[Rfam]
RNA sequence: UUCGGGUGCAUUGUAGUUGCAUUGCACUUACCGUGUUGGCAAGAGGUGCAGUACUUCUGCAAUGCAACCCGAA
Numbered sequence: 001u002u003c004g005g006g007u008g009c010a011u012u013g014u015a016g017u018u019g020c021a022u023u024g025c026a027c028u029u030a031c032c033g034u035g036u037u038g039g040c041a042a043g044a045g046g047u048g049c050a051g052u053a054c055u056u057c058u059g060c061a062a063u064g065c066a067a068c069c070c071g072a073a
Stems, first nucleotide, its partner, number of pairs: 001073004006069001007066010019054001021052009
A member of the RNA family "mir-33 microRNA precursor family" from Anopheles stephensi, 73 nucleotides long. The match comes from Rfam's covariance-model search (63 bits).